RNA sequence: CUCCCCGAAAUGCAUAGAGGUGCAGCGUCGCAGCCGAGUGUGCGGGAGGUAGAGCACUGGUUGGGCUAGGGCCCUUCACCGGGUACCAAACCCAGUCAAACUCCGAAUGCCCGCACAUGCUCUGCGGCAGUGAGGGCAUGGGCGAUAAGGUCCAUGUCCGAGAGGGGGACAACCCAGACCGACAGCUAAGGCCCCCAAGUCCAGGCUAAGUUGGGCAAAGGAGGUCGGGCUGCUAAGACAACCAGGAGGUUGGCUUAGAAGCAGCCAUUCCUUUAAAGAGUGCGUAACAGCUCACUGGUCGAGCGGCCCGGCGCCGAAAAUUGUCGGGCAUCAAGCCUGGCGCCGAAGCUUCGGGUUUGCAGCCUUCGGGCUGCAAGCGGUAGGGGAGCAUUCCAGUUGCGCUGAAGUCGCCUCGUGAGGGGCGGUGGAGCGACUGGAAAAGAAAAU
Numbered sequence: 001c002u003c004c005c006c007g008a009a010a011u012g013c014a015u016a017g018a019g020g021u022g023c024a025g026c027g028u029c030g031c032a033g034c035c036g037a038g039u040g041u042g043c044g045g046g047a048g049g050u051a052g053a054g055c056a057c058u059g060g061u062u063g064g065g066c067u068a069g070g071g072c073c074c075u076u077c078a079c080c081g082g083g084u085a086c087c088a089a090a091c092c093c094a095g096u097c098a099a100a101c102u103c104c105g106a107a108u109g110c111c112c113g114c115a116c117a118u119g120c121u122c123u124g125c126g127g128c129a130g131u132g133a134g135g136g137c138a139u140g141g142g143c144g145a146u147a148a149g150g151u152c153c154a155u156g157u158c159c160g161a162g163a164g165g166g167g168g169a170c171a172a173c174c175c176a177g178a179c180c181g182a183c184a185g186c187u188a189a190g191g192c193c194c195c196c197a198a199g200u201c202c203a204g205g206c207u208a209a210g211u212u213g214g215g216c217a218a219a220g221g222a223g224g225u226c227g228g229g230c231u232g233c234u235a236a237g238a239c240a241a242c243c244a245g246g247a248g249g250u251u252g253g254c255u256u257a258g259a260a261g262c263a264g265c266c267a268u269u270c271c272u273u274u275a276a277a278g279a280g281u282g283c284g285u286a287a288c289a290g291c292u293c294a295c296u297g298g299u300c301g302a303g304c305g306g307c308c309c310g311g312c313g314c315c316g317a318a319a320a321u322u323g324u325c326g327g328g329c330a331u332c333a334a335g336c337c338u339g340g341c342g343c344c345g346a347a348g349c350u351u352c353g354g355g356u357u358u359g360c361a362g363c364c365u366u367c368g369g370g371c372u373g374c375a376a377g378c379g380g381u382a383g384g385g386g387a388g389c390a391u392u393c394c395a396g397u398u399g400c401g402c403u404g405a406a407g408u409c410g411c412c413u414c415g416u417g418a419g420g421g422g423c424g425g426u427g428g429a430g431c432g433a434c435u436g437g438a439a440a441a442g443a444a445a446a447u
Stems, first nucleotide, its partner, number of pairs: 001388006011024005026130001027128007037121001038118009052104001053102002058098003062094004069087002071084004134159010164175003179354004184350003190344003199341001201340006220315002224312010241299005247272003252266003273277001278293001282291002355378008389442001391439010407426008
A member of the RNA family "Bacterial large subunit ribosomal RNA" from Rhodothermus marinus, 447 nucleotides of a longer RNA. Lineage of the source: Bacteria > Pseudomonadati > Rhodothermia > Rhodothermus > Rhodothermus marinus. It is one of the family's seed sequences.